[Rfam]
RNA sequence: AGCCAGUCGGAAAUGAGCUUAUUCAUAAAAGUGCAGUACGAGCCGGUGAGCCUGUCGUUUUAUGUAUAAGCUCGUCUCUGAUGGAA
Numbered sequence: 001a002g003c004c005a006g007u008c009g010g011a012a013a014u015g016a017g018c019u020u021a022u023u024c025a026u027a028a029a030a031g032u033g034c035a036g037u038a039c040g041a042g043c044c045g046g047u048g049a050g051c052c053u054g055u056c057g058u059u060u061u062a063u064g065u066a067u068a069a070g071c072u073c074g075u076c077u078c079u080g081a082u083g084g085a086a
Stems, first nucleotide, its partner, number of pairs: 004084001006082006013075002016072007024064007033055004
RNA: mir-590 microRNA precursor family